RNA: small nucleolar RNA snoR137
RNA sequence: GUUGCUUCUUACUGGUGAACUCUUCCCUCAAAUAUCAGUGGAAAAUGUUCGUGUUUCCGAAGCAUAAAUUAAUUUUCCAGUAUUAAACAGCACAUGGAAUUUCUUUUUGAUUUCCACUGUACGAUUCUUUUAUAUAUAU
Number, nucleotide and partner (000 for none) at each position: 001g000002u000003u064004g063005c062006u061007u060008c059009u000010u000011a000012c000013u000014g000015g000016u051017g050018a049019a048020c047021u045022c000023u043024u042025c041026c000027c000028u000029c000030a000031a000032a000033u000034a000035u000036c000037a000038g000039u000040g000041g025042a024043a023044a000045a021046u000047g020048u019049u018050c017051g016052u000053g000054u000055u000056u000057c000058c000059g008060a007061a006062g005063c004064a003065u000066a000067a000068a000069u000070u000071a000072a000073u000074u000075u000076u000077c000078c000079a000080g133081u132082a131083u000084u000085a000086a000087a000088c000089a000090g122091c000092a000093c119094a118095u000096g000097g115098a000099a000100u000101u000102u000103c000104u000105u000106u000107u000108u000109g000110a000111u000112u000113u000114c000115c097116a000117c000118u094119g093120u000121a000122c090123g000124a000125u000126u000127c000128u000129u000130u000131u082132a081133u080134a000135u000136a000137u000138a000139u000